[Rfam]
Nucleotides: 130
Stems, first nucleotide, its partner, number of pairs: 002042004007038002009035001011033001013031005064124003069119001071117001076112005082106003087098003
Number, partner (000 for none) and nucleotide at each position: 001000a002042g003041g004040c005039a006000a007038c008037c009035u010000a011033c012000u013031u014030g015029u016028u017027a018000a019000a020000a021000a022000a023000u024000u025000g026000g027017u028016g029015a030014c031013a032000u033011g034000a035009g036000a037008g038007g039005u040004g041003u042002u043000u044000a045000a046000c047000u048000g049000u050000u051000c052000c053000u054000a055000c056000a057000u058000c059000a060000a061000u062000u063000g064124c065123u066122u067000u068000u069119g070000c071117u072000c073000u074000u075000c076112a077111g078110a079109u080108u081000u082106g083105c084104u085000g086000a087098g088097a089096u090000u091000u092000u093000a094000u095000a096089g097088u098087c099000u100000u101000u102000g103000a104084a105083g106082c107000u108080g109079g110078u111077c112076u113000a114000g115000u116000a117071g118000u119069c120000u121000c122066a123065a124064g125000c126000a127000c128000a129000u130000u

This 130-nucleotide RNA from Arabis alpina belongs to the Rfam family "Small nucleolar RNA snoR77". Rfam links the family to the GO terms nucleolus and RNA processing. The base pairs follow the family's consensus structure, which was predicted with WAR. By type it is an H/ACA-box small nucleolar RNA.